A member of the RNA family "t44 RNA" from Hydrogenovibrio marinus, 129 nucleotides long. This family consists of a number of bacterial RNA genes of between 135 and 170 bases in length.

[Rfam]
RNA sequence: AAUUUUAACAGAAAAAACCACACGCUUUCCAAUACAUCAUUUGGGGUGCCUUAAUUACCCGAUAGCGGUAAGCCAAGCGAAACUGCUUUGUUAAAAAGGUUCGAAUGAUGGGAGAUGCGGAGGCUUAAC
Numbered sequence: 001a002a003u004u005u006u007a008a009c010a011g012a013a014a015a016a017a018c019c020a021c022a023c024g025c026u027u028u029c030c031a032a033u034a035c036a037u038c039a040u041u042u043g044g045g046g047u048g049c050c051u052u053a054a055u056u057a058c059c060c061g062a063u064a065g066c067g068g069u070a071a072g073c074c075a076a077g078c079g080a081a082a083c084u085g086c087u088u089u090g091u092u093a094a095a096a097a098g099g100u101u102c103g104a105a106u107g108a109u110g111g112g113a114g115a116u117g118c119g120g121a122g123g124c125u126u127a128a129c
Stems, first nucleotide, its partner, number of pairs: 023119003027115002030112001035110009048100005